RNA sequence: GAGAGGGAGAGUGCGGCCGACGGUGGCUUGAGAGCUGCUGAGGAAAGUCCCCCCACCGACCAGGCACGCAGCCGCAUGCAAGUGCGGGUGGCGAGAGUCAUGGCAAUGACACAGAAACGACACGCCCUGCCGCCAGUGAUGAUGCGGCCGAGCCUUCGGGCGAGAAGCGCACCCAGGUGCGUGAGUUAACCCGUUGAACGUAACGGCAGGAAACGCUGAAACGGUGAAUCCCUGCGGGUGCAAGCCAGAACAGGGCAUGUGGGCGCCUGGGCCCGCCCGGGUAUGGCGCUAAGUCGAAUGCCGCAAUGAACAGAAGGGGGCUUACUCCUCCGACUC
Number, nucleotide and partner (000 for none) at each position: 001g336002a335003g334004a000005g000006g331007g330008a329009g328010a326011g325012u305013g304014c303015g302016g301017c300018c000019g000020a000021c040022g039023g038024u037025g036026g035027c034028u033029u000030g000031a000032g000033a028034g027035c026036u025037g024038c023039u022040g021041a000042g000043g000044a000045a323046a322047g321048u000049c320050c319051c318052c317053c316054c240055a239056c238057c237058g000059a000060c270061c269062a268063g267064g266065c000066a000067c236068g235069c234070a233071g232072c087073c086074g085075c084076a083077u000078g000079c000080a000081a000082g000083u076084g075085c074086g073087g072088g101089u100090g099091g098092c097093g000094a000095g000096a000097g092098u091099c090100a089101u088102g231103g230104c000105a000106a000107u227108g000109a225110c224111a000112c000113a000114g000115a000116a000117a000118c000119g000120a000121c000122a000123c215124g214125c000126c210127c209128u208129g207130c206131c205132g204133c000134c000135a000136g000137u000138g000139a000140u000141g000142a000143u000144g194145c193146g192147g191148c000149c000150g000151a000152g000153c000154c000155u000156u000157c000158g000159g000160g000161c000162g000163a000164g000165a000166a000167g000168c000169g000170c000171a000172c000173c000174c000175a000176g000177g000178u000179g000180c000181g000182u000183g000184a000185g000186u000187u000188a000189a000190c000191c147192c146193g145194u144195u000196g000197a000198a000199c000200g000201u000202a000203a000204c132205g131206g130207c129208a128209g127210g126211a000212a000213a000214c124215g123216c000217u000218g000219a000220a000221a000222c000223g000224g110225u109226g000227a107228a000229u000230c103231c102232c071233u070234g069235c068236g067237g057238g056239u055240g054241c000242a000243a000244g287245c286246c285247a284248g000249a000250a000251c000252a000253g278254g277255g276256c275257a000258u000259g000260u000261g000262g000263g000264c000265g000266c064267c063268u062269g061270g060271g000272c000273c000274c000275g256276c255277c254278c253279g000280g000281g000282u000283a000284u247285g246286g245287c244288g000289c000290u000291a000292a000293g000294u000295c000296g000297a000298a000299u000300g017301c016302c015303g014304c013305a012306a000307u000308g000309a000310a000311c000312a000313g000314a000315a000316g053317g052318g051319g050320g049321c047322u046323u045324a000325c011326u010327c000328c009329u008330c007331c006332g000333a000334c003335u002336c001
Annotation:
Archaeal RNase P: a 336-nucleotide RNA sequence from Methanofollis formosanus. NCBI's taxonomy places the organism under Archaea, Methanobacteriati, Methanobacteriota, Methanomicrobiaceae, Methanofollis. The match comes from Rfam's covariance-model search (200 bits). Its Rfam clan is "RNaseP clan". A reference for the family is Frank and Pace (1998), "Ribonuclease P: unity and diversity in a tRNA processing ribozyme", Annu Rev Biochem. Rfam's curators write: Ribonuclease P (RNase P) is a ubiquitous endoribonuclease, found in archaea, bacteria and eukarya as well as chloroplasts and mitochondria. Its best characterised activity is the generation of mature 5'-ends of tRNAs by cleaving the 5'-leader elements of precursor-tRNAs.